[Rfam]
RNA sequence: CCUUGGGUAUUCGUGCCGAUGAAGGAAGUGCAAAACUGCUUUAAGCCUCGAGGAGCUGUUAAGAAGCGUUAUUACUCGGGGAUUUCCGAAUGGGGAAACCCGGCCACGUUUAAACGUAGGUCACUCACAAUUGAAAAUUUACCUUUUGGUAAAUCAUAGAUUGUGAAGAGGGAACUCGGCGAACUGAAACAACUUAGUAGCCGGAGGAAAAGAAACAAUCUUGUUAUUUUCUUAGUAGCGGCGAGCGAAAAGAAAUCAGCCCAAACUCAAGUUGUUUUUGGAUUGAGCGGUUUGAUUUAUCAAAUUGUCUUAAUCUAGAAACAAUAUCAAUUGAGGGUAUGGAAAAUCCAUAUCUGCUUUUAGCAGAUGAGAGUUAUAAAUUGUUCUUGUAUAAGAAGUUGCCUGGAAAGGCACGCCAUAGAGAGCAAUAGCCUCGUAUUUUAAACAAGAACAACUCUUUGGGUUUAUCCUGAGUAGCACGGGGCACGUGUAAUCCUGUGCGAAUAUAGCAGGCCCACCUGCGAAGGCUAAAUACAUGAAUACACCGAUAGCGCAUAGUACCGUGAGGGAAAGGUGAAAAGAACCCCUGUUAGGGGAGUG
Number, nucleotide and partner (000 for none) at each position: 001c574002c573003u000004u000005g546006g545007g543008u542009a541010u540011u539012c538013g537014u536015g535016c171017c170018g000019a000020u000021g000022a000023a000024g087025g086026a085027a040028g039029u038030g000031c000032a000033a000034a000035a000036c000037u000038g029039c028040u027041u000042u000043a000044a000045g000046c081047c080048u079049c078050g077051a076052g075053g000054a000055g067056c066057u065058g000059u000060u000061a000062a000063g000064a000065a057066g056067c055068g000069u000070u000071a000072u000073u000074a000075c052076u051077c050078g049079g048080g047081g046082a000083u000084u000085u026086c025087c024088g000089a000090a000091u000092g101093g100094g099095g000096a000097a000098a000099c094100c093101c092102g122103g121104c120105c119106a117107c116108g115109u000110u000111u000112a000113a000114a000115c108116g107117u106118a000119g105120g104121u103122c102123a000124c168125u167126c165127a164128c163129a162130a161131u160132u159133g000134a000135a000136a000137a000138u000139u000140u000141a000142c000143c000144u000145u000146u000147u000148g000149g000150u000151a000152a000153a000154u000155c000156a000157u000158a000159g132160a131161u130162u129163g128164u127165g126166a000167a125168g124169a000170g017171g016172g000173a000174a000175c206176u204177c203178g202179g201180c200181g000182a000183a000184c000185u000186g193187a000188a000189a000190c000191a000192a000193c186194u000195u000196a000197g000198u000199a000200g180201c179202c178203g177204g176205a000206g175207g000208a000209a000210a000211a000212g000213a000214a000215a000216c223217a222218a000219u000220c000221u000222u217223g216224u000225u000226a000227u532228u255229u254230u253231c252232u251233u000234a000235g000236u000237a000238g246239c245240g000241g000242c000243g000244a000245g239246c238247g000248a000249a000250a000251a232252g231253a230254a229255a228256u000257c000258a529259g528260c527261c526262c000263a000264a000265a000266c335267u334268c333269a332270a331271g000272u329273u000274g000275u000276u000277u000278u000279u000280g000281g000282a000283u000284u000285g000286a000287g000288c000289g000290g000291u000292u000293u000294g000295a000296u000297u000298u000299a000300u000301c000302a000303a000304a000305u000306u000307g000308u000309c000310u000311u000312a000313a000314u000315c000316u000317a000318g000319a000320a000321a000322c000323a000324a000325u000326a000327u000328c000329a272330a000331u270332u269333g268334a267335g266336g000337g000338u000339a000340u000341g000342g470343a000344a468345a000346a464347u463348c462349c461350a460351u000352a000353u000354c000355u000356g000357c000358u000359u000360u000361u000362a000363g000364c000365a000366g000367a000368u000369g000370a000371g000372a000373g000374u000375u000376a000377u000378a000379a456380a000381u454382u453383g452384u451385u450386c449387u448388u447389g446390u445391a000392u000393a440394a439395g000396a000397a000398g414399u000400u413401g412402c411403c410404u000405g000406g000407a000408a000409a000410g403411g402412c401413a400414c398415g000416c000417c421418a000419u000420a000421g417422a000423g435424a434425g433426c000427a000428a000429u000430a000431g000432c000433c425434u424435c423436g000437u000438a000439u394440u393441u000442u000443a000444a000445a390446c389447a388448a387449g386450a385451a384452c383453a382454a381455c000456u379457c000458u000459u000460u350461g349462g348463g347464u346465u000466u000467a000468u344469c000470c342471u000472g000473a000474g000475u000476a000477g501478c500479a499480c498481g497482g496483g495484g494485c000486a000487c000488g000489u000490g000491u000492a000493a000494u484495c483496c482497u481498g480499u479500g478501c477502g000503a000504a000505u000506a000507u000508a000509g522510c521511a520512g519513g000514c000515c000516c000517a000518c000519c512520u511521g510522c509523g000524a000525a000526g261527g260528c259529u258530a000531a000532a227533u000534a000535c015536a014537u013538g012539a011540a010541u009542a008543c007544a000545c006546c005547g000548a000549u000550a000551g000552c000553g000554c000555a000556u000557a000558g000559u000560a000561c568562c567563g000564u000565g000566a000567g562568g561569g000570a000571a000572a000573g002574g001575u000576g000577a000578a000579a000580a000581g000582a000583a000584c596585c595586c594587c593588u000589g000590u000591u000592a000593g587594g586595g585596g584597a000598g000599u000600g000
RNA: Bacterial large subunit ribosomal RNA, nucleotides 30 to 629